[Rfam]
RNA sequence: GGUUAUGAGUUCCAGUGCAGAGCCCCGGCUUGCUGGACGGCAACCCUCCAACCGCGGUGGGGUGCUCCGGGUGAAGACCAGGCGAAUGUCGACCGACAAACGCAAGCGCGGGCC
Number, nucleotide and partner (000 for none) at each position: 001g079002g078003u077004u076005a000006u000007g000008a000009g038010u000011u037012c036013c035014a034015g033016u032017g000018c000019a000020g000021a030022g029023c000024c000025c000026c000027g000028g000029c022030u021031u000032g016033c015034u014035g013036g012037a011038c009039g066040g065041c064042a000043a000044c062045c061046c060047u000048c057049c056050a000051a000052c000053c000054g000055c000056g049057g048058u000059g000060g046061g045062g044063u000064g041065c040066u039067c000068c000069g000070g000071g000072u000073g000074a000075a000076g004077a003078c002079c001080a000081g000082g103083c102084g101085a000086a000087u098088g097089u096090c095091g000092a000093c000094c000095g090096a089097c088098a087099a000100a000101c084102g083103c082104a000105a000106g000107c000108g000109c000110g000111g000112g000113c000114c000
This 114-nucleotide RNA from Antricoccus suffuscus belongs to the Rfam family "SAM (S-adenosyl methionine) riboswitch aptamer". Pairs were carried over by alignment from the consensus structure, which is taken from published work. The family has 40 seed sequences and 2,360 matches in Rfam 15.1. A search with the family's covariance model found it, with a score of 105 bits.